The family of this 134-nucleotide RNA from Mustela putorius is "Small nucleolar RNA SNORA1". The family's RNA type in Rfam is H/ACA-box small nucleolar RNA. Rfam 15.1 lists 1,282 matches to the family in 515 species. NCBI's taxonomy places the organism under Eukaryota, Euteleostomi, Tetrapoda, Theria, Mustela putorius. It scores 91 bits against the family's covariance model. Rfam's curators write: ACA1 is a member of the H/ACA class of snoRNA that guide the sites of modification of uridines to pseudouridines.
[Rfam]
RNA sequence: UGCAAAUAUAUACAGGCAUAUACUGUAUUUUUUUUAAAGAUUUUAUUUAUUUAUUUGUGGCUACAUUGAGACACAGGUUAUGCUUCCAUCACAGCAAGUUUAUUGCUGUGGUGACAAUGAGGCCUGUAACAUUU
Numbered sequence: 001u002g003c004a005a006a007u008a009u010a011u012a013c014a015g016g017c018a019u020a021u022a023c024u025g026u027a028u029u030u031u032u033u034u035u036a037a038a039g040a041u042u043u044u045a046u047u048u049a050u051u052u053a054u055u056u057g058u059g060g061c062u063a064c065a066u067u068g069a070g071a072c073a074c075a076g077g078u079u080a081u082g083c084u085u086c087c088a089u090c091a092c093a094g095c096a097a098g099u100u101u102a103u104u105g106c107u108g109u110g111g112u113g114a115c116a117a118u119g120a121g122g123c124c125u126g127u128a129a130c131a132u133u134u
Stems, first nucleotide, its partner, number of pairs: 001059001003057003020042001023039002073127005087113006